[Rfam]
RNA sequence: GGCGUGUCUAUGGCAAGUAGAAUAGCAGGCUUAUCACAUGUUUAAUUCAAUCUGCUGUGAGAUUCUUCUAUUCUACUUUCGACAACACCC
Dot-bracket structure: ((.(......(((.(((((((((((.(((....(((((.((............)))))))....)))))))))))))))))....).)).
Shown here is a 90-nucleotide RNA from Drosophila melanogaster, a member of the family "mir-958 microRNA precursor family". The source organism's lineage runs through Eukaryota, Eumetazoa, Allotriocarida, Diptera and Sophophora.